[Rfam]
RNA sequence: GUCAGGUACCCCAUGUCUAAAGGCAGGGGCUUGUGAAAGCGAGUCUGGACCUGACCAGACUCAGCCAGAGCUGAUGGAUACAAUCAUCAAAGCUAUCGGGCUACGAUAGAGGUAAAGUGUUCAAGUUCCUACCUACGGGUGCGUGCCAGCCUGUAGCUCUAGAAUUCCUGGGUUAAACGGCAAAACGGGGUUUUAUGCAGUGCUCAGGGAAAAGUACCGCCCUCUAUCCUUGUCGAGGCAACCAUUAC
Numbered sequence: 001g002u003c004a005g006g007u008a009c010c011c012c013a014u015g016u017c018u019a020a021a022g023g024c025a026g027g028g029g030c031u032u033g034u035g036a037a038a039g040c041g042a043g044u045c046u047g048g049a050c051c052u053g054a055c056c057a058g059a060c061u062c063a064g065c066c067a068g069a070g071c072u073g074a075u076g077g078a079u080a081c082a083a084u085c086a087u088c089a090a091a092g093c094u095a096u097c098g099g100g101c102u103a104c105g106a107u108a109g110a111g112g113u114a115a116a117g118u119g120u121u122c123a124a125g126u127u128c129c130u131a132c133c134u135a136c137g138g139g140u141g142c143g144u145g146c147c148a149g150c151c152u153g154u155a156g157c158u159c160u161a162g163a164a165u166u167c168c169u170g171g172g173u174u175a176a177a178c179g180g181c182a183a184a185a186c187g188g189g190g191u192u193u194u195a196u197g198c199a200g201u202g203c204u205c206a207g208g209g210a211a212a213a214g215u216a217c218c219g220c221c222c223u224c225u226a227u228c229c230u231u232g233u234c235g236a237g238g239c240a241a242c243c244a245u246u247a248c
Stems, first nucleotide, its partner, number of pairs: 001055007010029002012026001016023002030043004058234003063102004105228008127163002133156008143242002145239003165210009177201002180198003183194003
HNH endonuclease-associated RNA and ORF (HEARO) RNA: a 248-nucleotide RNA from Ktedonobacter racemifer.
On this family, see Weinberg et al., Nature 2009: "Exceptional structured noncoding RNAs revealed by bacterial metagenome analysis".
The source organism's lineage runs through Bacteria, Chloroflexota, Ktedonobacteria, Ktedonobacteraceae and Ktedonobacter racemifer.